[Rfam]
RNA: UnaL2 LINE 3' element
RNA sequence: AAUGCUCAGAAAUAUAAGUCGCUCUGGAUAAGAGUGUCUGCCAAAUGCCGUAAA
Numbered sequence: 001a002a003u004g005c006u007c008a009g010a011a012a013u014a015u016a017a018g019u020c021g022c023u024c025u026g027g028a029u030a031a032g033a034g035u036g037u038c039u040g041c042c043a044a045a046u047g048c049c050g051u052a053a054a
Base pairs, nucleotide, nucleotide: 013043015040016039020036021035022034023033024032025031